[Rfam]
RNA sequence: AUGGAGACAUGGCUUAAAACCAGAGAAAGUGAGAGACAUUAACUCUGUAGGUUAUAACUUGAACUAAUUUGCAUCUCAUUUU
Number, nucleotide and partner (000 for none) at each position: 001a000002u000003g000004g077005a076006g075007a074008c000009a000010u022011g021012g020013c000014u000015u000016a000017a000018a000019a000020c012021c011022a010023g000024a000025g000026a000027a000028a000029g072030u071031g070032a069033g000034a000035g000036a000037c000038a000039u000040u000041a000042a000043c000044u000045c000046u000047g000048u000049a000050g000051g000052u000053u000054a000055u000056a000057a000058c000059u000060u000061g000062a000063a000064c000065u000066a000067a000068u000069u032070u031071g030072c029073a000074u007075c006076u005077c004078a000079u000080u000081u000082u000
A member of the RNA family "ctgf/hcs24 CAESAR" from Erinaceus europaeus, 82 nucleotides long. The source organism's lineage runs through Eukaryota, Metazoa, Bilateria, Deuterostomia and Erinaceus. The family has 9 seed sequences and 518 matches in Rfam 15.1. The literature on the family includes a 1999 paper in FEBS Lett by Kubota et al., "Involvement of cis-acting repressive element(s) in the 3'-untranslated region of human connective tissue growth factor gene". Rfam's curators write: The 3' UTR of human connective tissue growth factor/hypertrophic chondrocyte specific 24 (ctgf/hcs24) mRNA has been shown to repress ctgf gene expression. Reference identified a minimal RNA element, predicted to form a stable secondary structure, which acts as a post-transcriptional cis-acting element of structure-anchored repression (CAESAR), probably through direct interactions with as yet unknown nuclear factors. A search with the family's covariance model found it, with a score of 84 bits.